RNA: Y RNA
RNA sequence: GGCUGGUCUGAUGGUAGUGGGUUAUCAGAAUUUAUUAAAAUUAUUAGUGUCACUGAAGUUAGUAUACCACCCCCCACUGCUGAAUCUAACUAGUUUUUU
Numbered sequence: 001g002g003c004u005g006g007u008c009u010g011a012u013g014g015u016a017g018u019g020g021g022u023u024a025u026c027a028g029a030a031u032u033u034a035u036u037a038a039a040a041u042u043a044u045u046a047g048u049g050u051c052a053c054u055g056a057a058g059u060u061a062g063u064a065u066a067c068c069a070c071c072c073c074c075c076a077c078u079g080c081u082g083a084a085u086c087u088a089a090c091u092a093g094u095u096u097u098u099u
Base pairs, nucleotide, nucleotide: 001095002094003093004092005091006090007089010087015082016078017077018076019075020074021073033064034063035062037060038059